[Rfam]
RNA sequence: GCAGGGAGCGCGUGUAUGGACUCUGCUCGAGGAGUGGCUCUGGUGUACUUCCCCGACAUCAGAUCGAGACUUUUCGAGUGGGGCCCUGUACGCACUCCGUGAUUUG
Numbered sequence: 001g002c003a004g005g006g007a008g009c010g011c012g013u014g015u016a017u018g019g020a021c022u023c024u025g026c027u028c029g030a031g032g033a034g035u036g037g038c039u040c041u042g043g044u045g046u047a048c049u050u051c052c053c054c055g056a057c058a059u060c061a062g063a064u065c066g067a068g069a070c071u072u073u074u075c076g077a078g079u080g081g082g083g084c085c086c087u088g089u090a091c092g093c094a095c096u097c098c099g100u101g102a103u104u105u106g
Stems, first nucleotide, its partner, number of pairs: 010093007018086002021083014035067001036065002039063008

Shown here is a 106-nucleotide RNA from Corynebacterium glutamicum, a member of the family "mraW RNA". It is one of the family's seed sequences. Taxonomically the source falls in Corynebacterium glutamicum (Bacteria, Actinomycetota, Actinomycetes, Mycobacteriales). The base pairs follow the family's consensus structure, which is taken from published work. Rfam classes the family as a cis-regulatory element.